Shown here is a 97-nucleotide RNA sequence from Limosa lapponica, a member of the family "Vault RNA".
RNA sequence: GGGCCGGCUAUAGCCCAGCGGUUACUUCGGUCUCUCACAAGCUCUUUGUGUCCCGCCCCGCGAGGGGUUCGAUCCCGCGGGCACCUCUGGGUCAUGG
Numbered sequence: 001g002g003g004c005c006g007g008c009u010a011u012a013g014c015c016c017a018g019c020g021g022u023u024a025c026u027u028c029g030g031u032c033u034c035u036c037a038c039a040a041g042c043u044c045u046u047u048g049u050g051u052c053c054c055g056c057c058c059c060g061c062g063a064g065g066g067g068u069u070c071g072a073u074c075c076c077g078c079g080g081g082c083a084c085c086u087c088u089g090g091g092u093c094a095u096g097g
Base pairs, nucleotide, nucleotide: 002093003092004091005090007088013082014081015080016079018078019077020076021075027072028071029070030069
Description: Rfam's curators write: This family of RNAs are found as part of the enigmatic vault ribonucleoprotein complex. Taxonomically the source falls in Limosa lapponica (Eukaryota, Chordata, Amniota, Saurischia). The base pairs follow the family's consensus structure, which is taken from published work.